[Rfam]
RNA sequence: UCAGGGAGUGUAAACAUCCUACACUCUCAGCUGGAGCGCAGCCGAGGCCGGGAGUGGGAUGUUUGCGCUCUCUGG
Dot-bracket structure: .(((((.(((((((((((((..((((((.(((.............))).))))))))))))))))))).))))).
Numbered sequence: 001u002c003a004g005g006g007a008g009u010g011u012a013a014a015c016a017u018c019c020u021a022c023a024c025u026c027u028c029a030g031c032u033g034g035a036g037c038g039c040a041g042c043c044g045a046g047g048c049c050g051g052g053a054g055u056g057g058g059a060u061g062u063u064u065g066c067g068c069u070c071u072c073u074g075g
Stems, first nucleotide, its partner, number of pairs: 002074005008068013023055006030048003
A member of the RNA family "mir-30 microRNA precursor family" from Danio rerio, 75 nucleotides long. Rfam links the family to the GO terms gene silencing by miRNA and RISC complex. It is one of the family's seed sequences. On this family, see Lagos-Quintana et al., Science 2001: "Identification of novel genes coding for small expressed RNAs". This family consists of the mammalian microRNA (miRNA) precursor mir-30a. Animal miRNAs are transcribed as ~70nt precursors and subsequently processed by the Dicer enzyme to give a ~22nt product. The source organism's lineage runs through Eukaryota, Actinopteri, Teleostei, Clupeocephala and Danio.